[Rfam]
The record is a 37-nucleotide RNA from Desulfofarcimen acetoxidans, which matches "abiF RNA" in Rfam. The source organism's lineage runs through Bacteria, Bacillota, Clostridia, Eubacteriales and Desulfofarcimen acetoxidans. Rfam's curators write: Actinobacteria, Bacteroidetes, Clostridia, Proteobacteria, one Clostridia phage.
RNA sequence: CCCACCGCGCCUCUUUACAAUGCGUACCAGGGUGGGA
Numbered sequence: 001c002c003c004a005c006c007g008c009g010c011c012u013c014u015u016u017a018c019a020a021u022g023c024g025u026a027c028c029a030g031g032g033u034g035g036g037a
Stems, first nucleotide, its partner, number of pairs: 001036006008024003